[Rfam]
RNA sequence: AGGGUUCCGGUUCCCGUCCUCAUUCAUCACAGGACGACCCGGCGGCC
Numbered sequence: 001a002g003g004g005u006u007c008c009g010g011u012u013c014c015c016g017u018c019c020u021c022a023u024u025c026a027u028c029a030c031a032g033g034a035c036g037a038c039c040c041g042g043c044g045g046c047c
Base pairs, nucleotide, nucleotide: 003047004046005045007042008041009040010039015036016035017034018033019032020031
Rfam assigns this 47-nucleotide sequence from Actinoplanes octamycinicus to the family "L31-Actinobacteria ribosomal protein leader".
The match comes from Rfam's covariance-model search (40 bits).
NCBI's taxonomy places the organism under Bacteria, Bacillati, Actinomycetes, Micromonosporaceae, Actinoplanes.